[Rfam]
RNA sequence: ACCCUGAAUAGAAAUGAGGGUUGACUCUCGCCAGAGGGGCGAGGGCCGGAGCAAGGUCAGCUUCGGCAAAUUAUUAACUUGGAUGCAGAGACCACAUCCUUGAAUA
Number, nucleotide and partner (000 for none) at each position: 001a021002c020003c019004c018005u017006g000007a000008a000009u000010a000011g000012a000013a000014a000015u000016g000017a005018g004019g003020g002021u001022u000023g000024a000025c000026u044027c043028u042029c041030g040031c039032c000033a000034g000035a000036g000037g000038g000039g031040c030041g029042a028043g027044g026045g067046c066047c065048g064049g063050a062051g061052c060053a000054a000055g000056g000057u000058c000059a000060g052061c051062u050063u049064c048065g047066g046067c045068a000069a000070a000071u000072u000073a000074u000075u000076a000077a000078c000079u103080u000081g099082g098083a097084u096085g095086c000087a000088g000089a000090g000091a000092c000093c000094a000095c085096a084097u083098c082099c081100u000101u000102g000103a079104a000105u000106a000
The record is a 106-nucleotide RNA, which matches "engA RNA" in Rfam.